[Rfam]
RNA sequence: UCAGGGGGCCGGGCAACUGCGUAUGGGGUGACCCAUCCGAGGAAAGUCCGGGCUCCACGAAAUAAGGGUGGCGGGUAACGCCCGCCGGGCUUCGAUCCUUACGGGGUAAGAGGUUUAGGGAUAGUGCCACAGAGAGCAAACCGCCUGUGCGUUUCGGAAGGAGCACGCGUUCCUUUUGGAAAACGGCAGGUAAGGGUGAAAGGGUGCGGUAAGAGCGCACCGCGCGAUUGGUAACAAUCGCGGCAUGGUAAACCCCACCCGGAGCAAGGCCAAAUAGGGGCGGCGCGCCGAGGGCUUCGGUCCAAGGCAGGUCUAUUUCGGACCGUGAUCGCCCGGGUUGGCUGCUUGAGCUGCGGAGCAAUCCGUAGCCUAGAGGAAUGGUUGCCCUUGGCGGGCAGGUCCCUUGCGGAUACCGCCGCUGAGACAGAACCCGGCUUAUAGGCCCCCUGACGUU
Numbered sequence: 001u002c003a004g005g006g007g008g009c010c011g012g013g014c015a016a017c018u019g020c021g022u023a024u025g026g027g028g029u030g031a032c033c034c035a036u037c038c039g040a041g042g043a044a045a046g047u048c049c050g051g052g053c054u055c056c057a058c059g060a061a062a063u064a065a066g067g068g069u070g071g072c073g074g075g076u077a078a079c080g081c082c083c084g085c086c087g088g089g090c091u092u093c094g095a096u097c098c099u100u101a102c103g104g105g106g107u108a109a110g111a112g113g114u115u116u117a118g119g120g121a122u123a124g125u126g127c128c129a130c131a132g133a134g135a136g137c138a139a140a141c142c143g144c145c146u147g148u149g150c151g152u153u154u155c156g157g158a159a160g161g162a163g164c165a166c167g168c169g170u171u172c173c174u175u176u177u178g179g180a181a182a183a184c185g186g187c188a189g190g191u192a193a194g195g196g197u198g199a200a201a202g203g204g205u206g207c208g209g210u211a212a213g214a215g216c217g218c219a220c221c222g223c224g225c226g227a228u229u230g231g232u233a234a235c236a237a238u239c240g241c242g243g244c245a246u247g248g249u250a251a252a253c254c255c256c257a258c259c260c261g262g263a264g265c266a267a268g269g270c271c272a273a274a275u276a277g278g279g280g281c282g283g284c285g286c287g288c289c290g291a292g293g294g295c296u297u298c299g300g301u302c303c304a305a306g307g308c309a310g311g312u313c314u315a316u317u318u319c320g321g322a323c324c325g326u327g328a329u330c331g332c333c334c335g336g337g338u339u340g341g342c343u344g345c346u347u348g349a350g351c352u353g354c355g356g357a358g359c360a361a362u363c364c365g366u367a368g369c370c371u372a373g374a375g376g377a378a379u380g381g382u383u384g385c386c387c388u389u390g391g392c393g394g395g396c397a398g399g400u401c402c403c404u405u406g407c408g409g410a411u412a413c414c415g416c417c418g419c420u421g422a423g424a425c426a427g428a429a430c431c432c433g434g435c436u437u438a439u440a441g442g443c444c445c446c447c448u449g450a451c452g453u454u
Base pairs, nucleotide, nucleotide: 001450002449003448004447005446006445007444008443009442010441011439012386013385014384015383016382017381018380020039021038023036024035025034026033027032044437045436046435048434049433050432051431052430053264054263055262056261062318064316066260067259068258069257070256071085072084073083074082075081086118087116088115089114090113091112092111093110119255120254124253125252126249127248128247141195142194143191144190145189146188147187148186150185151184152183153182154181203221204220205219206218207217208216222244223242224241225240226239227238228237229236230235268343269342270341271340278334279333280332281331282330283329310324311323312322313321314320350369351368352367353366354365355364356363357362